[Rfam]
This 99-nucleotide sequence from Agromyces mediolanus belongs to the Rfam family "Glycine riboswitch aptamer". A search with the family's covariance model found it, with a score of 59 bits.
RNA sequence: CGACGCGUCGCGGGAGAGCCACCGGCAGUCAUCGUCGGGGGCACCGAAGGAGCAAGCCUCCCCGCCAAUCUCUCAGGUACACGACACCGCGAUGACGAG
Numbered sequence: 001c002g003a004c005g006c007g008u009c010g011c012g013g014g015a016g017a018g019c020c021a022c023c024g025g026c027a028g029u030c031a032u033c034g035u036c037g038g039g040g041g042c043a044c045c046g047a048a049g050g051a052g053c054a055a056g057c058c059u060c061c062c063c064g065c066c067a068a069u070c071u072c073u074c075a076g077g078u079a080c081a082c083g084a085c086a087c088c089g090c091g092a093u094g095a096c097g098a099g
Stems, first nucleotide, its partner, number of pairs: 006094008020041001022039002043078003046074002050072003056065002